[Rfam]
RNA: Small nucleolar RNA R16
RNA sequence: GACGGCAGAUGAUGCAUGCUCUUAUUGUACACUCUGAGAUCCAAUGAGGACGCAACUCCGCUUAUUAUCUGAUGCCAUG
Numbered sequence: 001g002a003c004g005g006c007a008g009a010u011g012a013u014g015c016a017u018g019c020u021c022u023u024a025u026u027g028u029a030c031a032c033u034c035u036g037a038g039a040u041c042c043a044a045u046g047a048g049g050a051c052g053c054a055a056c057u058c059c060g061c062u063u064a065u066u067a068u069c070u071g072a073u074g075c076c077a078u079g
Stems, first nucleotide, its partner, number of pairs: 004076004